[Rfam]
RNA sequence: GGACGAGGAUGAACACAAUUUGGUCUCGUUCGUCGUAAUGGUGUCUUUCAUGAUACCUUGCCGACCAUACUGAUAUAUCACCACCCAUAAAUUGAGUCC
Numbered sequence: 001g002g003a004c005g006a007g008g009a010u011g012a013a014c015a016c017a018a019u020u021u022g023g024u025c026u027c028g029u030u031c032g033u034c035g036u037a038a039u040g041g042u043g044u045c046u047u048u049c050a051u052g053a054u055a056c057c058u059u060g061c062c063g064a065c066c067a068u069a070c071u072g073a074u075a076u077a078u079c080a081c082c083a084c085c086c087a088u089a090a091a092u093u094g095a096g097u098c099c
Stems, first nucleotide, its partner, number of pairs: 001099004043059001